[Rfam]
RNA sequence: GCAGGGAAGAGGAAGAAAGAGAGGUCCUAAGAGUGGUAGGAGUGGGAACAUCAAGGAACUCGUACGAGUCUGAUUUCUCAUCUAGCAUUAGAGGAGGAGGAUAUUUGCAUCGAUGUGUUCCUAAUGCCUCCCAUUCCUAUGGUUAUUAGGGGCUCCUUCCUCUUCCUUUCGCUA
Numbered sequence: 001g002c003a004g005g006g007a008a009g010a011g012g013a014a015g016a017a018a019g020a021g022a023g024g025u026c027c028u029a030a031g032a033g034u035g036g037u038a039g040g041a042g043u044g045g046g047a048a049c050a051u052c053a054a055g056g057a058a059c060u061c062g063u064a065c066g067a068g069u070c071u072g073a074u075u076u077c078u079c080a081u082c083u084a085g086c087a088u089u090a091g092a093g094g095a096g097g098a099g100g101a102u103a104u105u106u107g108c109a110u111c112g113a114u115g116u117g118u119u120c121c122u123a124a125u126g127c128c129u130c131c132c133a134u135u136c137c138u139a140u141g142g143u144u145a146u147u148a149g150g151g152g153c154u155c156c157u158u159c160c161u162c163u164u165c166c167u168u169u170c171g172c173u174a
Base pairs, nucleotide, nucleotide: 009165010164011163012162013161015159016158017157021155022154023153026150027149028148029147030146032144033143034142037139038138039137040136041135042134043133044132045131046130047129049126050125051124053122055121056120057119058118059117061115062114063113